The record is a 185-nucleotide sequence from Scleromatobacter humisilvae, which matches "6S / SsrS RNA" in Rfam. From the family's description: E. coli 6S RNA was the first non coding RNA to be sequenced, but its function was unknown until recently. It consists of 184 nucleotides that fold into an extended hairpin structure with a large single-stranded internal bulge. The 6S RNA specifically associates with RNA polymerase holoenzyme containing the sigma70 specificity factor. This interaction represses expression from a sigma70-dependent promoter during stationary phase. 6S RNA homologs have recently been identified in most bacterial genomes. Many Gram-positive species have two copies of 6S RNA. In Bacillus subtilis, both copies appear to interact with RNA polymerase holoenzyme containing the housekeeping sigma factor and be expressed during different stages of growth. In many proteobacteria, 6S RNA may be processed from a transcript encoding homologs of the E. coli YgfA protein which is a putative 5-formyltetrahydrofolate cycloligase activity. A search with the family's covariance model found it, with a score of 47 bits. The family's consensus secondary structure is taken from published work. On this family, see Wassarman and Storz, Cell 2000: "6S RNA regulates E. coli RNA polymerase activity".
RNA sequence: AUUCGUCCGUCGCGUUCGCGAGGGUUUUAUAUUUCCUUGAACCGAUGCGCUUUGCGCUAGGGCUUGGAACAUCGUCUGGUUGGUGUGAUCGUCUCGCGUCAGAUGAACCCGAAGCCAGUCUGACCUCGCCCACCUGAACACCCCUGGGUUCAGGAAUGCGGCCCGAGGUUCGCGGCGGACACCCU
Numbered sequence: 001a002u003u004c005g006u007c008c009g010u011c012g013c014g015u016u017c018g019c020g021a022g023g024g025u026u027u028u029a030u031a032u033u034u035c036c037u038u039g040a041a042c043c044g045a046u047g048c049g050c051u052u053u054g055c056g057c058u059a060g061g062g063c064u065u066g067g068a069a070c071a072u073c074g075u076c077u078g079g080u081u082g083g084u085g086u087g088a089u090c091g092u093c094u095c096g097c098g099u100c101a102g103a104u105g106a107a108c109c110c111g112a113a114g115c116c117a118g119u120c121u122g123a124c125c126u127c128g129c130c131c132a133c134c135u136g137a138a139c140a141c142c143c144c145u146g147g148g149u150u151c152a153g154g155a156a157u158g159c160g161g162c163c164c165g166a167g168g169u170u171c172g173c174g175g176c177g178g179a180c181a182c183c184c185u
Stems, first nucleotide, its partner, number of pairs: 005180007012171001014169002017167001019165001033156004038152006060131003066125002071121001074120001076118005085108002090105005